U11 spliceosomal RNA: a 134-nucleotide RNA from Octopus sinensis.
The literature on the family includes a 1988 paper in Proc Natl Acad Sci U S A by Montzka and Steitz, "Additional low-abundance human small nuclear ribonucleoproteins: U11, U12, etc".
The match comes from Rfam's covariance-model search (94 bits).
RNA sequence: UAAAAGGGUCUUUGUCGUCAGUGACACCCAGUUGCCGAUAGGCGAGCGUCUGGGCGGAAUCACAAUCAAGAGAUUUCGGAGACGCAAUUUUUAACAACCGGUGGCAGCUGUCGCUCUUUAAGCACGGCGCCCGG
Numbered sequence: 001u002a003a004a005a006g007g008g009u010c011u012u013u014g015u016c017g018u019c020a021g022u023g024a025c026a027c028c029c030a031g032u033u034g035c036c037g038a039u040a041g042g043c044g045a046g047c048g049u050c051u052g053g054g055c056g057g058a059a060u061c062a063c064a065a066u067c068a069a070g071a072g073a074u075u076u077c078g079g080a081g082a083c084g085c086a087a088u089u090u091u092u093a094a095c096a097a098c099c100g101g102u103g104g105c106a107g108c109u110g111u112c113g114c115u116c117u118u119u120a121a122g123c124a125c126g127g128c129g130c131c132c133g134g
Stems, first nucleotide, its partner, number of pairs: 008083005013026005027054005033048003036044002055078007101132001103131003107128005113123003

Taxonomically the source falls in Octopus (Eukaryota, Metazoa, Octopodiformes, Octopodidae).
The family is grouped with related families in Rfam's "U1 clan".
Rfam classes the family as a spliceosomal small nuclear RNA.